[Rfam]
RNA sequence: UUAAAUUGUAAGGGGAGCCAUUAAAUUGGCUGAGAGGAUUGGGAUCGACCCUUGGAACCUGAUCCGGGUAAUGCCGGCGGAGGGAUGUUAUGUAUGAGGAUG
Numbered sequence: 001u002u003a004a005a006u007u008g009u010a011a012g013g014g015g016a017g018c019c020a021u022u023a024a025a026u027u028g029g030c031u032g033a034g035a036g037g038a039u040u041g042g043g044a045u046c047g048a049c050c051c052u053u054g055g056a057a058c059c060u061g062a063u064c065c066g067g068g069u070a071a072u073g074c075c076g077g078c079g080g081a082g083g084g085a086u087g088u089u090a091u092g093u094a095u096g097a098g099g100a101u102g
Base pairs, nucleotide, nucleotide: 006090008088009087010086011052012051013050014049017030018029019028020027037046038045039044058083059082060081064077065076066075067074
This 102-nucleotide RNA belongs to the Rfam family "TPP riboswitch aptamer (THI element)". Its family is annotated with thiamine pyrophosphate binding in the Gene Ontology. Rfam describes the family as follows. Vitamin B(1) in its active form thiamin pyrophosphate (TPP) is an essential coenzyme that is synthesised by coupling of pyrimidine and thiazole moieties in bacteria. It scores 73 bits against the family's covariance model. For this family Rfam cites "Comparative genomics of thiamin biosynthesis in procaryotes. New genes and regulatory mechanisms" (Rodionov et al., J Biol Chem, 2002).